Shown here is a 144-nucleotide RNA from Streptomyces viridochromogenes, a member of the family "Streptomyces-metH RNA". The family's RNA type in Rfam is small RNA. The source organism's lineage runs through Bacteria, Bacillati, Actinomycetota, Streptomyces and Streptomyces viridochromogenes.
[Rfam]
RNA sequence: GCCGUCCGCCCCGUGGACGCCCUGCACAUCCCGGGCGACUCCCGGUUAGGCUGGCGCCGUGCGCCCUUCCCCCGGGGGAUCGCUCCUGGGUGUCCGGGGAGCCGCAUAGCCGACAGCCGUCGCAUUUGAGGGAGCCCUUACAUG
Numbered sequence: 001g002c003c004g005u006c007c008g009c010c011c012c013g014u015g016g017a018c019g020c021c022c023u024g025c026a027c028a029u030c031c032c033g034g035g036c037g038a039c040u041c042c043c044g045g046u047u048a049g050g051c052u053g054g055c056g057c058c059g060u061g062c063g064c065c066c067u068u069c070c071c072c073c074g075g076g077g078g079a080u081c082g083c084u085c086c087u088g089g090g091u092g093u094c095c096g097g098g099g100a101g102c103c104g105c106a107u108a109g110c111c112g113a114c115a116g117c118c119g120u121c122g123c124a125u126u127u128g129a130g131g132g133a134g135c136c137c138u139u140a141c142a143u144g
Stems, first nucleotide, its partner, number of pairs: 060106004068099004109123002112121003